The family of this 131-nucleotide sequence from Myotis davidii is "Small nucleolar RNA SNORA42/SNORA80 family". The family's consensus secondary structure was predicted with RNAalifold. The members of this family belong to the H/ACA class of snoRNAs that guide the sites of modification of uridines to pseudouridines. On this family, see Schattner et al., RNA 2006: "A computational screen for mammalian pseudouridylation guide H/ACA RNAs".
RNA sequence: UCAUGGGUUUGCAUUUAUGGCACGCCCGACCCCCCGAGUCUCUCAGUGCCUCAUGCCAGAGCAACUGUGGCCUUGAACCAUUGCCUGGCUCCUGCCCGUAGGCGGCAGGCACUGAAGCGGGUUGCACAGUG
Numbered sequence: 001u002c003a004u005g006g007g008u009u010u011g012c013a014u015u016u017a018u019g020g021c022a023c024g025c026c027c028g029a030c031c032c033c034c035c036g037a038g039u040c041u042c043u044c045a046g047u048g049c050c051u052c053a054u055g056c057c058a059g060a061g062c063a064a065c066u067g068u069g070g071c072c073u074u075g076a077a078c079c080a081u082u083g084c085c086u087g088g089c090u091c092c093u094g095c096c097c098g099u100a101g102g103c104g105g106c107a108g109g110c111a112c113u114g115a116a117g118c119g120g121g122u123u124g125c126a127c128a129g130u131g
Stems, first nucleotide, its partner, number of pairs: 002055003005051004015046002019044002022041001024039001026036001068124006079114002084109002086105001088103003